RNA: GRIK4 3 prime UTR element
RNA sequence: AGGUCCUGAGCAGCACGGGGCACUGGGAGCUGGGCUUGGGCACUGGGGAGGGCCUGGCAGGAGCUGCUCUGUGUCACCAGGCAGGAAUUGGCUG
Numbered sequence: 001a002g003g004u005c006c007u008g009a010g011c012a013g014c015a016c017g018g019g020g021c022a023c024u025g026g027g028a029g030c031u032g033g034g035c036u037u038g039g040g041c042a043c044u045g046g047g048g049a050g051g052g053c054c055u056g057g058c059a060g061g062a063g064c065u066g067c068u069c070u071g072u073g074u075c076a077c078c079a080g081g082c083a084g085g086a087a088u089u090g091g092c093u094g
Stems, first nucleotide, its partner, number of pairs: 003053005011032004